[Rfam]
RNA sequence: CGACGGGUCCGGGCCCCUCUGGCAACCGCGCGGCAGCCGGUUGCGAUGUCGGAUCCCCUGA
Numbered sequence: 001c002g003a004c005g006g007g008u009c010c011g012g013g014c015c016c017c018u019c020u021g022g023c024a025a026c027c028g029c030g031c032g033g034c035a036g037c038c039g040g041u042u043g044c045g046a047u048g049u050c051g052g053a054u055c056c057c058c059u060g061a
Stems, first nucleotide, its partner, number of pairs: 006055007022044007
Dot-bracket structure: .....(((((((.........(((((((.........)))))))....)))))))......
RNA: terC RNA